RNA: CRISPR RNA direct repeat element
Nucleotides: 030
Base pairs, nucleotide, nucleotide: 011025012024014022015021
Number, partner (000 for none) and nucleotide at each position: 001000g002000u003000u004000u005000c006000a007000g008000a009000a010000g011025a012024a013000c014022c015021c016000u017000u018000a019000u020000g021015g022014g023000a024012u025011u026000g027000a028000a029000g030000c